[Rfam]
RNA sequence: CUGCCACUGUUGUGAGGCGUUGGAACGGGCCGGCAGAAGUCAGCAGAGGGCAUAGUACUGCGGAAAGUACGCAGGGAGGCC
Numbered sequence: 001c002u003g004c005c006a007c008u009g010u011u012g013u014g015a016g017g018c019g020u021u022g023g024a025a026c027g028g029g030c031c032g033g034c035a036g037a038a039g040u041c042a043g044c045a046g047a048g049g050g051c052a053u054a055g056u057a058c059u060g061c062g063g064a065a066a067g068u069a070c071g072c073a074g075g076g077a078g079g080c081c
Stems, first nucleotide, its partner, number of pairs: 001027001004023003008019004040047002049081003058074005
This 81-nucleotide RNA sequence from Natronogracilivirga saccharolytica belongs to the Rfam family "Group II catalytic intron D1-D4-1". Rfam's curators write: Group II introns are found in rRNA, tRNA and mRNA of organelles in fungi, plants and protists, and also in mRNA in bacteria. The organism belongs to Natronogracilivirga, within Bacteria.